[Rfam]
RNA: Glycine riboswitch aptamer
RNA sequence: CGACGUGUGGCGGGAGAACCUCCGAUCGAAGGAGGCGCCGUAGGAGCAAUGUCCUCCCCGGGAAUCUCUCAGGCACAAGCACCGUCACGCCGAG
Numbered sequence: 001c002g003a004c005g006u007g008u009g010g011c012g013g014g015a016g017a018a019c020c021u022c023c024g025a026u027c028g029a030a031g032g033a034g035g036c037g038c039c040g041u042a043g044g045a046g047c048a049a050u051g052u053c054c055u056c057c058c059c060g061g062g063a064a065u066c067u068c069u070c071a072g073g074c075a076c077a078a079g080c081a082c083c084g085u086c087a088c089g090c091c092g093a094g
Base pairs, nucleotide, nucleotide: 006089007088008087009086010085011084012083013082019035020034021033022032037074038073039072040070044068045067046066050061